[Rfam]
RNA: Ribosomal protein L19 leader
RNA sequence: ACGGUGUUCCGCUGUAAUGGAAAGAGCUUGCAAGAGCAUCUG
Numbered sequence: 001a002c003g004g005u006g007u008u009c010c011g012c013u014g015u016a017a018u019g020g021a022a023a024g025a026g027c028u029u030g031c032a033a034g035a036g037c038a039u040c041u042g
Stems, first nucleotide, its partner, number of pairs: 003040007013032005